[Rfam]
RNA: Small nucleolar RNA snoR109
RNA sequence: CAGCUGCAGCCAGACCCAACGCCUCAGAAGUUGCCUAACCGGCCGGUCGCCGUUCAUAUCGCCGACGACACUUCUGCUCACCAAACUUCUGAUGUUC
Numbered sequence: 001c002a003g004c005u006g007c008a009g010c011c012a013g014a015c016c017c018a019a020c021g022c023c024u025c026a027g028a029a030g031u032u033g034c035c036u037a038a039c040c041g042g043c044c045g046g047u048c049g050c051c052g053u054u055c056a057u058a059u060c061g062c063c064g065a066c067g068a069c070a071c072u073u074c075u076g077c078u079c080a081c082c083a084a085a086c087u088u089c090u091g092a093u094g095u096u097c
Base pairs, nucleotide, nucleotide: 025091026090027089028088029087030086031085032084041078042077043076045074046073049069051067052066